Rfam assigns this 149-nucleotide RNA sequence from Erinaceus europaeus to the family "U12 minor spliceosomal RNA". The source organism's lineage runs through Eukaryota, Opisthokonta, Bilateria, Chordata and Erinaceus.

RNA sequence: AUACCUUAAACUUUUAAGUAAUGAAAAUAACGGUUCAAGGUGACUACCAAAUUCUCAUGCUAACGUAAGACGAAUUUUUGAGCUGGUAAAGGUCACCCUUAAGGUUACCUGCCUACUUUGUGGGAUGCCUGGGAGCUGUGAUUUUCCCC
Numbered sequence: 001a002u003a004c005c006u007u008a009a010a011c012u013u014u015u016a017a018g019u020a021a022u023g024a025a026a027a028u029a030a031c032g033g034u035u036c037a038a039g040g041u042g043a044c045u046a047c048c049a050a051a052u053u054c055u056c057a058u059g060c061u062a063a064c065g066u067a068a069g070a071c072g073a074a075u076u077u078u079u080g081a082g083c084u085g086g087u088a089a090a091g092g093u094c095a096c097c098c099u100u101a102a103g104g105u106u107a108c109c110u111g112c113c114u115a116c117u118u119u120g121u122g123g124g125a126u127g128c129c130u131g132g133g134a135g136c137u138g139u140g141a142u143u144u145u146c147c148c149c
Stems, first nucleotide, its partner, number of pairs: 004023001006021003032053004039047001054069002057066002085147002090144007099133002102130004108124005
Dot-bracket structure: ...(.(((..........))).)........((((...(.......)..))))((.((......)).))...............((...(((((((..((.((((..(((((.......)))))..)))).))....))))))).))..